[Rfam]
This 184-nucleotide RNA belongs to the Rfam family "Small nucleolar RNA Z112". It is one of the family's seed sequences. The base pairs follow the family's consensus structure, which was predicted with PFOLD. Gene Ontology terms of the family: RNA processing and nucleolus. By type it is a C/D-box small nucleolar RNA.

RNA sequence: GUCCCAGUGAGGAUUCUAUGACCAUAGGAAGUGCCGUAUGACACUUUAAACAGCAGCUGCUUUUCUCAUUUGCAAGUGUCCAUCCUUCGACCAUAACCUUUGUGGUUUGGUCUGGGAUGGAGUACCCAUUUGCAAUUGGUUAAUUCAGCUGUGUGUGUGAUUUUAAACGGGUCUCUUGAGGGAU
Number, nucleotide and partner (000 for none) at each position: 001g184002u183003c182004c181005c180006a000007g000008u000009g000010a000011g000012g000013a000014u000015u000016c000017u000018a000019u000020g000021a000022c000023c000024a000025u000026a000027g000028g000029a000030a000031g000032u000033g000034c000035c000036g000037u000038a000039u000040g000041a000042c000043a000044c000045u000046u000047u000048a000049a000050a000051c000052a000053g000054c000055a000056g000057c000058u000059g000060c000061u000062u000063u000064u000065c000066u000067c000068a000069u000070u135071u134072g133073c132074a131075a130076g129077u128078g127079u121080c120081c119082a118083u117084c116085c115086u000087u000088c000089g112090a111091c110092c109093a108094u000095a107096a106097c105098c104099u000100u000101u000102g000103u000104g098105g097106u096107u095108u093109g092110g091111u090112c089113u000114g000115g085116g084117a083118u082119g081120g080121a079122g000123u000124a000125c000126c000127c078128a077129u076130u075131u074132g073133c072134a071135a070136u000137u000138g000139g000140u000141u000142a000143a000144u000145u000146c000147a000148g000149c000150u000151g000152u000153g000154u000155g000156u000157g000158u000159g000160a000161u000162u000163u000164u000165a000166a000167a000168c000169g000170g000171g000172u000173c000174u000175c000176u000177u000178g000179a000180g005181g004182g003183a002184u001